[Rfam]
RNA sequence: AGGCCAUGGUGGGGACAAAGUCUAAGCAUUUCCUUGAAACGCUCCCACGCCUCAUAGAGAGAUUCCCCAUCUUUUUGAUUGAAACGUGUGAUUUGGUCUCUGAGCUU
Numbered sequence: 001a002g003g004c005c006a007u008g009g010u011g012g013g014g015a016c017a018a019a020g021u022c023u024a025a026g027c028a029u030u031u032c033c034u035u036g037a038a039a040c041g042c043u044c045c046c047a048c049g050c051c052u053c054a055u056a057g058a059g060a061g062a063u064u065c066c067c068c069a070u071c072u073u074u075u076u077g078a079u080u081g082a083a084a085c086g087u088g089u090g091a092u093u094u095g096g097u098c099u100c101u102g103a104g105c106u107u
Base pairs, nucleotide, nucleotide: 001107003105004104005102006101057074058073
RNA: Plant small nucleolar RNA R71